[Rfam]
Shown here is an 81-nucleotide RNA sequence from Desulfonema magnum, a member of the family "c-di-GMP-I-GGC riboswitch aptamer". On this family, see Weinberg et al., Proc Natl Acad Sci U S A 2017: "Bioinformatic analysis of riboswitch structures uncovers variant classes with altered ligand specificity".

RNA sequence: UUCGUAAAAGGCAAACCAAUCGUAAGAUUGGGACGCAAAGCUUUCGGUCCAAAAUUAUCUUUGGAUGGCGGGUUGCCGGAU
Dot-bracket structure: ..((......((...((((((....))))))..[))..((((..(((((((((......))))))).]))))))..))...
Numbered sequence: 001u002u003c004g005u006a007a008a009a010g011g012c013a014a015a016c017c018a019a020u021c022g023u024a025a026g027a028u029u030g031g032g033a034c035g036c037a038a039a040g041c042u043u044u045c046g047g048u049c050c051a052a053a054a055u056u057a058u059c060u061u062u063g064g065a066u067g068g069c070g071g072g073u074u075g076c077c078g079g080a081u
Stems, first nucleotide, its partner, number of pairs: 003078002011036002016031006034068001039074004045070002047066007
Description: Lineage of the source: Bacteria > Pseudomonadati > Thermodesulfobacteriota > Desulfobacteria > Desulfonema. A search with the family's covariance model found it, with a score of 60 bits.